RNA sequence: UGUUUCCGCUAGGGGUGCCCUUUUAGAAGGGCUGAGAUUAAAGUGAUACUUUAGAACCCUUACAACCUGAUCUGGUUCAUACCAGCGGAGGGAAGUGGUAUCGUCGCUUG
Numbered sequence: 001u002g003u004u005u006c007c008g009c010u011a012g013g014g015g016u017g018c019c020c021u022u023u024u025a026g027a028a029g030g031g032c033u034g035a036g037a038u039u040a041a042a043g044u045g046a047u048a049c050u051u052u053a054g055a056a057c058c059c060u061u062a063c064a065a066c067c068u069g070a071u072c073u074g075g076u077u078c079a080u081a082c083c084a085g086c087g088g089a090g091g092g093a094a095g096u097g098g099u100a101u102c103g104u105c106g107c108u109u110g
Base pairs, nucleotide, nucleotide: 006098007097008096009095010094011060012059013058014057016054017032018031019030020029021028039053040052041051042050043049066091067090068089072085073084074083075082